Source information
Rfam assigns this 100-nucleotide RNA sequence from Nyctereutes procyonoides to the family "GRIK4 3 prime UTR element".
RNA sequence: CCAUCCUGGAGGCCAUCAGCACCCCGGAGAUCAGAGGUGGCCGGGCCAGUGGGGAGGCGGGGUGGGGCAGACUCUGCAGACAGCAGCUGGGACUUGAGCC
Numbered sequence: 001c002c003a004u005c006c007u008g009g010a011g012g013c014c015a016u017c018a019g020c021a022c023c024c025c026g027g028a029g030a031u032c033a034g035a036g037g038u039g040g041c042c043g044g045g046c047c048a049g050u051g052g053g054g055a056g057g058c059g060g061g062g063u064g065g066g067g068c069a070g071a072c073u074c075u076g077c078a079g080a081c082a083g084c085a086g087c088u089g090g091g092a093c094u095u096g097a098g099c100c
Stems, first nucleotide, its partner, number of pairs: 003063005011042007
Background: The source organism's lineage runs through Eukaryota, Metazoa, Chordata, Sarcopterygii and Nyctereutes.